This 69-nucleotide sequence from Trifolium subterraneum belongs to the Rfam family "Plastid-clpP 5UTR RNA". From the family's description: Plastid clpP is a non-coding RNA (ncRNA) recognised in plastids. The family's RNA type in Rfam is cis-regulatory element. A reference for the family is Richter et al. (2023), "Retrograde signaling in plants: A critical review focusing on the GUN pathway and beyond", Plant Commun.
[Rfam]
RNA sequence: CAUUCUAUUUGUAGGACCAAAAAGAAGCAGAUCUAUUCUAUAUCCGAUAAGUAACAAUACACAAUGGUG
Numbered sequence: 001c002a003u004u005c006u007a008u009u010u011g012u013a014g015g016a017c018c019a020a021a022a023a024g025a026a027g028c029a030g031a032u033c034u035a036u037u038c039u040a041u042a043u044c045c046g047a048u049a050a051g052u053a054a055c056a057a058u059a060c061a062c063a064a065u066g067g068u069g
Stems, first nucleotide, its partner, number of pairs: 003022002006019001009016002044067002051060003